[Rfam]
RNA sequence: UAACCGGAUAGCUUUAGCGGGCAAUAAGCGGGAGUCAUUACCCCGUUUCCGGUUAUUCCCUUUCGUAAUG
Number, nucleotide and partner (000 for none) at each position: 001u055002a054003a053004c052005c051006g050007g049008a048009u000010a000011g022012c021013u020014u019015u000016a000017g000018c000019g014020g013021g012022c011023a000024a000025u000026a000027a000028g046029c045030g044031g043032g042033a000034g000035u000036c070037a069038u068039u067040a066041c065042c032043c031044c030045g029046u028047u000048u008049c007050c006051g005052g004053u003054u002055a001056u000057u000058c000059c000060c000061u000062u000063u000064c000065g041066u040067a039068a038069u037070g036